STAXI RNA: a 183-nucleotide sequence from Serratia fonticola.
Lineage of the source: Bacteria > Pseudomonadati > Gammaproteobacteria > Yersiniaceae > Serratia.
The family's consensus secondary structure is taken from published work.
By type it is a small RNA.
It scores 60 bits against the family's covariance model.

[Rfam]
RNA sequence: CGUUGUCGAUGACAACAGUCAAUGCUUCAGCGCAAGGAGUGCGCAGGUGAUCUGAGAGAAGUGCCCUAGGGCGAUCACAAGCCAAAGUCAUACGGAGAGAAGCGUGGUCUGAGACUGACGCUUUCGAGCGACCACAGCCAAUGCGACCUUAACCUGAAAGGACGCGCUUUAGAGCGGUAACCC
Numbered sequence: 001c002g003u004u005g006u007c008g009a010u011g012a013c014a015a016c017a018g019u020c021a022a023u024g025c026u027u028c029a030g031c032g033c034a035a036g037g038a039g040u041g042c043g044c045a046g047g048u049g050a051u052c053u054g055a056g057a058g059a060a061g062u063g064c065c066c067u068a069g070g071g072c073g074a075u076c077a078c079a080a081g082c083c084a085a086a087g088u089c090a091u092a093c094g095g096a097g098a099g100a101a102g103c104g105u106g107g108u109c110u111g112a113g114a115c116u117g118a119c120g121c122u123u124u125c126g127a128g129c130g131a132c133c134a135c136a137g138c139c140a141a142u143g144c145g146a147c148c149u150u151a152a153c154c155u156g157a158a159a160g161g162a163c164g165c166g167c168u169u170u171a172g173a174g175c176g177g178u179a180a181c182c183c
Base pairs, nucleotide, nucleotide: 002016003015004014005013006012007011024062025061026060027059028058047078048077049076050075051074052073063072064071065070101116102115104135105134106133107132108131109130120129121128122127147160149180150179151178153177154176166175167174168173